[Rfam]
The record is a 169-nucleotide sequence from Halohasta litchfieldiae, which matches "Sense overlapping transcript RNA 0042 (sot)" in Rfam. Rfam describes the family as follows. It is associated with IS1341-type transposase (tnpB) genes, at the 3'-end in H. salinarum NRC-1. The tetraloop structural motif may be functional. The family's consensus secondary structure was predicted with RNAfold. For this family Rfam cites "Sense overlapping transcripts in IS1341-type transposase genes are functional non-coding RNAs in archaea" (Gomes-Filho et al., RNA Biol, 2015). It is annotated as a small RNA. The source organism's lineage runs through Archaea, Methanobacteriati, Halobacteria, Haloferacaceae and Halohasta.
RNA sequence: AAGUAUCUCCGAGUCCUCGUUCAGAGGAUAGGAGUAACGGCUGGUUGGCACAGCCAUCGACGUUCUUGUUUGACAAGGAAACUGGUGCGUUCGCACCUCAAGAUCAGGCUACGUCGUAAACCACAAUAUCCCAACGGCGGUCGGGAAUCCUCGCGCUUUAGCGCGGGGA
Numbered sequence: 001a002a003g004u005a006u007c008u009c010c011g012a013g014u015c016c017u018c019g020u021u022c023a024g025a026g027g028a029u030a031g032g033a034g035u036a037a038c039g040g041c042u043g044g045u046u047g048g049c050a051c052a053g054c055c056a057u058c059g060a061c062g063u064u065c066u067u068g069u070u071u072g073a074c075a076a077g078g079a080a081a082c083u084g085g086u087g088c089g090u091u092c093g094c095a096c097c098u099c100a101a102g103a104u105c106a107g108g109c110u111a112c113g114u115c116g117u118a119a120a121c122c123a124c125a126a127u128a129u130c131c132c133a134a135c136g137g138c139g140g141u142c143g144g145g146a147a148u149c150c151u152c153g154c155g156c157u158u159u160a161g162c163g164c165g166g167g168g169a
Stems, first nucleotide, its partner, number of pairs: 003038002007034004013029006039055005058116006065108004070103002084097005129146004134141002148169009